[Rfam]
RNA sequence: AGAGGCUACAAGUUCAAGGCUAUAGCACAGGUUUUCAUGGAACGGCCCUGUCAGAGUCCAACAAAUCUGAGAAUUAUGCU
Numbered sequence: 001a002g003a004g005g006c007u008a009c010a011a012g013u014u015c016a017a018g019g020c021u022a023u024a025g026c027a028c029a030g031g032u033u034u035u036c037a038u039g040g041a042a043c044g045g046c047c048c049u050g051u052c053a054g055a056g057u058c059c060a061a062c063a064a065a066u067c068u069g070a071g072a073a074u075u076a077u078g079c080u
Stems, first nucleotide, its partner, number of pairs: 018047004024080004029075002031043003052069004057064001
RNA: Mammalian CPEB3 ribozyme